[Rfam]
RNA: Small nucleolar RNA SNORA40
RNA sequence: UGCACUUGUGCGUGCUUUUGCUUAACUUGUGGAUAAAGUCUUACAGACAGGUGCAAAAAAUAAAUCUUCUUUUGCAACCCAGAACUCAUUGUUCAGUAUGAGUUUUGAUACAUAUAUAAGGGGAUAUU
Numbered sequence: 001u002g003c004a005c006u007u008g009u010g011c012g013u014g015c016u017u018u019u020g021c022u023u024a025a026c027u028u029g030u031g032g033a034u035a036a037a038g039u040c041u042u043a044c045a046g047a048c049a050g051g052u053g054c055a056a057a058a059a060a061u062a063a064a065u066c067u068u069c070u071u072u073u074g075c076a077a078c079c080c081a082g083a084a085c086u087c088a089u090u091g092u093u094c095a096g097u098a099u100g101a102g103u104u105u106u107g108a109u110a111c112a113u114a115u116a117u118a119a120g121g122g123g124a125u126a127u128u
Stems, first nucleotide, its partner, number of pairs: 001055009014040001016038005026031001064125005070119002073116002080107010